[Rfam]
RNA sequence: AUUAUUUGAGGUAGACAAUUGUGCCAUCUACACACCUUUUAAAGGUCAAAAGAGAUACAGGAUGUGGCACACCUGUCAAAUAAU
Numbered sequence: 001a002u003u004a005u006u007u008g009a010g011g012u013a014g015a016c017a018a019u020u021g022u023g024c025c026a027u028c029u030a031c032a033c034a035c036c037u038u039u040u041a042a043a044g045g046u047c048a049a050a051a052g053a054g055a056u057a058c059a060g061g062a063u064g065u066g067g068c069a070c071a072c073c074u075g076u077c078a079a080a081u082a083a084u
Stems, first nucleotide, its partner, number of pairs: 001084008011031005021070005033052001034046004057076005

The record is an 84-nucleotide RNA sequence, which matches "skipping-rope RNA" in Rfam. The family's consensus secondary structure is taken from published work.